[Rfam]
Overview:
This 82-nucleotide RNA from Caenorhabditis remanei belongs to the Rfam family "SmY spliceosomal RNA". On this family, see MacMorris et al., RNA 2007: "A novel family of C. elegans snRNPs contains proteins associated with trans-splicing". By type it is a spliceosomal small nuclear RNA.

RNA sequence: AUUCUUAUUAUUUCUUAUUCAGGGCCUUCCUUAAGACUCAAAGUACAAUUUUUUGAGAUCCUGUCCUUCAGUGGGCAGAGUG
Numbered sequence: 001a002u003u004c005u006u007a008u009u010a011u012u013u014c015u016u017a018u019u020c021a022g023g024g025c026c027u028u029c030c031u032u033a034a035g036a037c038u039c040a041a042a043g044u045a046c047a048a049u050u051u052u053u054u055g056a057g058a059u060c061c062u063g064u065c066c067u068u069c070a071g072u073g074g075g076c077a078g079a080g081u082g
Stems, first nucleotide, its partner, number of pairs: 022039003026035003058081002061078006